SAH (S-adenosyl-L-homocysteine) riboswitch aptamer: a 75-nucleotide sequence from Actinoplanes digitatis.
Rfam links the family to the GO terms S-adenosylhomocysteine metabolic process and regulation of gene expression.
The organism belongs to Actinoplanes, within Bacteria.
For this family Rfam cites "Riboswitches that sense S-adenosylhomocysteine and activate genes involved in coenzyme recycling" (Wang et al., Mol Cell, 2008).
RNA sequence: CAGGUCGAGGGGCGCUGCGACGGGCUGGACCCGCCACGCUCGGCCUGAAUUCUUCGACAAGGGCGCCUCCGAUUC
Numbered sequence: 001c002a003g004g005u006c007g008a009g010g011g012g013c014g015c016u017g018c019g020a021c022g023g024g025c026u027g028g029a030c031c032c033g034c035c036a037c038g039c040u041c042g043g044c045c046u047g048a049a050u051u052c053u054u055c056g057a058c059a060a061g062g063g064c065g066c067c068u069c070c071g072a073u074u075c
Base pairs, nucleotide, nucleotide: 002046003045004044005043006042007041008040021033022032023031024030